[Rfam]
RNA sequence: AUUGGUGAUAGAGGUGCGGUAUUUAAGAGUACUGUAGCUAAGGCAAGCACGAUGAGGCUUCAGGAAAGGAAAUAUCGCCGAAGCAUACAGCUGAUGCUUUAAGGCUGUAUAGCUGGUUCUGCAUAGAAUAUAUGCAGGACUGUCACAAAUUUUAUUUGUGGAGAGCUAUCAUUCAA
Numbered sequence: 001a002u003u004g005g006u007g008a009u010a011g012a013g014g015u016g017c018g019g020u021a022u023u024u025a026a027g028a029g030u031a032c033u034g035u036a037g038c039u040a041a042g043g044c045a046a047g048c049a050c051g052a053u054g055a056g057g058c059u060u061c062a063g064g065a066a067a068g069g070a071a072a073u074a075u076c077g078c079c080g081a082a083g084c085a086u087a088c089a090g091c092u093g094a095u096g097c098u099u100u101a102a103g104g105c106u107g108u109a110u111a112g113c114u115g116g117u118u119c120u121g122c123a124u125a126g127a128a129u130a131u132a133u134g135c136a137g138g139a140c141u142g143u144c145a146c147a148a149a150u151u152u153u154a155u156u157u158g159u160g161g162a163g164a165g166c167u168a169u170c171a172u173u174c175a176a
Stems, first nucleotide, its partner, number of pairs: 006171006016078009032063003036059004082114003085110008115141011143161007
The family of this 176-nucleotide RNA sequence from Caloramator sp. E03 is "Lysine riboswitch aptamer". Pairs were carried over by alignment from the consensus structure, which is taken from published work.